[Rfam]
RNA sequence: CGAUGAGGUAGAGGUCGCGGCUUUUAUCAGUAUGUUGCACGAGGUCCAGAGAAAGAUCAGAGACUGCAAUAGAAAGGAAACGCCGCCGAAGUCUUGUUUGUCACUCUGGACAAGCGGGCUGGGGCUGUACUCGAAAGGGGCAGAACUGUCACGUUUGCUUUACGCCUGAAGCAAACGUGUUGUGCUAUCUUCAGU
Numbered sequence: 001c002g003a004u005g006a007g008g009u010a011g012a013g014g015u016c017g018c019g020g021c022u023u024u025u026a027u028c029a030g031u032a033u034g035u036u037g038c039a040c041g042a043g044g045u046c047c048a049g050a051g052a053a054a055g056a057u058c059a060g061a062g063a064c065u066g067c068a069a070u071a072g073a074a075a076g077g078a079a080a081c082g083c084c085g086c087c088g089a090a091g092u093c094u095u096g097u098u099u100g101u102c103a104c105u106c107u108g109g110a111c112a113a114g115c116g117g118g119c120u121g122g123g124g125c126u127g128u129a130c131u132c133g134a135a136a137g138g139g140g141c142a143g144a145a146c147u148g149u150c151a152c153g154u155u156u157g158c159u160u161u162a163c164g165c166c167u168g169a170a171g172c173a174a175a176c177g178u179g180u181u182g183u184g185c186u187a188u189c190u191u192c193a194g195u
Stems, first nucleotide, its partner, number of pairs: 006190006017086005023080003033071007090120005096115007121147002125143004130138002150179011

Rfam assigns this 195-nucleotide RNA sequence from Brevibacillus fluminis to the family "Lysine riboswitch aptamer".